[Rfam]
Bacterial large subunit ribosomal RNA: a 384-nucleotide part of an RNA from Sediminispirochaeta smaragdinae. It scores 2846 bits against the family's covariance model.
RNA sequence: GAAAAGAGGGGUGAGAUCCCCCUCCGCCGAAAGCCUAAGGUUUCCAGGGUUAAGGUAAUCUGCCCAAGGGUUAGUCGGCCCCUAAGGCGAGGCCGAAAGGCGUAGCCGAUGGGAAACGGGUUAAUAUUCCCGUACCUCUUCCAAUUUUGAUGGGAUGACGCAUGAGGCGAAGCGAGUCCGGGCGAUGGUAGUCCCGGUCCAAGCGAUAAGCUGAUGAGUGGUGUAGGCAAAUCCGCACCAUGAGGUGAGUCGUGAAGGCGAGUGAAGCUACGGCGGAACGAAGCACGUGGAGUCAAGGUGACGAGAAAUAAUCUCUAAAGUUAGGUUGGAAGGGACCGUACCGUAAACCGACACAGGUAGGCGGGCUGAGAAUGCUAAGGCGCU
Numbered sequence: 001g002a003a004a005a006g007a008g009g010g011g012u013g014a015g016a017u018c019c020c021c022c023u024c025c026g027c028c029g030a031a032a033g034c035c036u037a038a039g040g041u042u043u044c045c046a047g048g049g050u051u052a053a054g055g056u057a058a059u060c061u062g063c064c065c066a067a068g069g070g071u072u073a074g075u076c077g078g079c080c081c082c083u084a085a086g087g088c089g090a091g092g093c094c095g096a097a098a099g100g101c102g103u104a105g106c107c108g109a110u111g112g113g114a115a116a117c118g119g120g121u122u123a124a125u126a127u128u129c130c131c132g133u134a135c136c137u138c139u140u141c142c143a144a145u146u147u148u149g150a151u152g153g154g155a156u157g158a159c160g161c162a163u164g165a166g167g168c169g170a171a172g173c174g175a176g177u178c179c180g181g182g183c184g185a186u187g188g189u190a191g192u193c194c195c196g197g198u199c200c201a202a203g204c205g206a207u208a209a210g211c212u213g214a215u216g217a218g219u220g221g222u223g224u225a226g227g228c229a230a231a232u233c234c235g236c237a238c239c240a241u242g243a244g245g246u247g248a249g250u251c252g253u254g255a256a257g258g259c260g261a262g263u264g265a266a267g268c269u270a271c272g273g274c275g276g277a278a279c280g281a282a283g284c285a286c287g288u289g290g291a292g293u294c295a296a297g298g299u300g301a302c303g304a305g306a307a308a309u310a311a312u313c314u315c316u317a318a319a320g321u322u323a324g325g326u327u328g329g330a331a332g333g334g335a336c337c338g339u340a341c342c343g344u345a346a347a348c349c350g351a352c353a354c355a356g357g358u359a360g361g362c363g364g365g366c367u368g369a370g371a372a373u374g375c376u377a378a379g380g381c382g383c384u
Base pairs, nucleotide, nucleotide: 006024007023008022009021010020011019025382026381027380028379033362034361035360036359039342040341044069045068047065048064049063053061054060076338077337078336081112082111086107087106088105090103092101093100094099116133117132118131119130120129136334137333138332139331140330141329142328143327144326145325146324147320148319152315153314154313155312156311161300162299163298166294167293168292172288173287174286176284178197179196180195181194182193199258200257203253204252205251206250210246211245212244218241219240220239221238222237223236224235226234227233262279263278348357349356364376365375366374
The organism belongs to Sediminispirochaeta smaragdinae, within Bacteria.